This 62-nucleotide RNA sequence from Pseudomonas sp. Boi14 belongs to the Rfam family "gabT RNA". Taxonomically the source falls in Pseudomonas (Bacteria, Pseudomonadota, Pseudomonadales, Pseudomonadaceae). The family's consensus secondary structure is taken from published work.
RNA sequence: GGUGGCCCGGGACCGCUCCGACAGUCGAUCAUCGCAUGCUGUCGCAGCCGCUUCCCCGCCCC
Numbered sequence: 001g002g003u004g005g006c007c008c009g010g011g012a013c014c015g016c017u018c019c020g021a022c023a024g025u026c027g028a029u030c031a032u033c034g035c036a037u038g039c040u041g042u043c044g045c046a047g048c049c050g051c052u053u054c055c056c057c058g059c060c061c062c
Stems, first nucleotide, its partner, number of pairs: 002062001004060003015048003019044007026034002